[Rfam]
RNA sequence: CUUCAUAGUCGGCAAACUUAUCGAAAGGUAAGGACGCAAAGCCAAGGGUCUUCUCCAGAAAUGGAAUGACAGCCGGUUGCAUUU
Numbered sequence: 001c002u003u004c005a006u007a008g009u010c011g012g013c014a015a016a017c018u019u020a021u022c023g024a025a026a027g028g029u030a031a032g033g034a035c036g037c038a039a040a041g042c043c044a045a046g047g048g049u050c051u052u053c054u055c056c057a058g059a060a061a062u063g064g065a066a067u068g069a070c071a072g073c074c075g076g077u078u079g080c081a082u083u084u
Stems, first nucleotide, its partner, number of pairs: 012037002017032006040078004046074002048070003055064003